[Rfam]
RNA sequence: UUUGAUCACUGUCUCCAGCCUGCUGAAGCUCAGAGGGCUCUGAUUCAGAAAGAUCAUCGGAUCCGUCUGAGCUUGGCUGGUCGGAAGUCUCAUCAUC
Numbered sequence: 001u002u003u004g005a006u007c008a009c010u011g012u013c014u015c016c017a018g019c020c021u022g023c024u025g026a027a028g029c030u031c032a033g034a035g036g037g038c039u040c041u042g043a044u045u046c047a048g049a050a051a052g053a054u055c056a057u058c059g060g061a062u063c064c065g066u067c068u069g070a071g072c073u074u075g076g077c078u079g080g081u082c083g084g085a086a087g088u089c090u091c092a093u094c095a096u097c
Stems, first nucleotide, its partner, number of pairs: 014085003018081003022077003026074009036064002039061006045053002
The record is a 97-nucleotide sequence from Rattus norvegicus, which matches "mir-127 microRNA precursor family" in Rfam. NCBI's taxonomy places the organism under Eukaryota, Eumetazoa, Amniota, Muridae, Rattus. Rfam links the family to the GO terms RISC complex and miRNA-mediated post-transcriptional gene silencing. On this family, see Morin et al., Genome Res 2008: "Application of massively parallel sequencing to microRNA profiling and discovery in human embryonic stem cells".